The record is an 82-nucleotide sequence from Anaerotalea alkaliphila, which matches "c-di-GMP-I-GGC riboswitch aptamer" in Rfam. Pairs were carried over by alignment from the consensus structure, which is taken from published work.
[Rfam]
RNA sequence: ACCGACAACGGCAAACCAGUCGAAAGGCUGGGACGCAAAGCUACAGGGCCUUUCCCUUCGGGGUGGCAGCCAGCUGCCGAAA
Numbered sequence: 001a002c003c004g005a006c007a008a009c010g011g012c013a014a015a016c017c018a019g020u021c022g023a024a025a026g027g028c029u030g031g032g033a034c035g036c037a038a039a040g041c042u043a044c045a046g047g048g049c050c051u052u053u054c055c056c057u058u059c060g061g062g063g064u065g066g067c068a069g070c071c072a073g074c075u076g077c078c079g080a081a082a
Stems, first nucleotide, its partner, number of pairs: 003079002011036002016031006034069001039075004046071002048067003